[Rfam]
RNA sequence: CUUUUAUCAGGAGAAGGUGGAGGGACAGGCCCUGUGAAACCCAGCAACCAUCUGUAGUCAUGCAGAUAAGGUGCCAACCUGGCAAAACAUCAUCUGUUUUGCAAGAUAAGAG
Numbered sequence: 001c002u003u004u005u006a007u008c009a010g011g012a013g014a015a016g017g018u019g020g021a022g023g024g025a026c027a028g029g030c031c032c033u034g035u036g037a038a039a040c041c042c043a044g045c046a047a048c049c050a051u052c053u054g055u056a057g058u059c060a061u062g063c064a065g066a067u068a069a070g071g072u073g074c075c076a077a078c079c080u081g082g083c084a085a086a087a088c089a090u091c092a093u094c095u096g097u098u099u100u101g102c103a104a105g106a107u108a109a110g111a112g
Stems, first nucleotide, its partner, number of pairs: 001112008013042001016041003022032003026082001028080002044074003048071002050067004083101006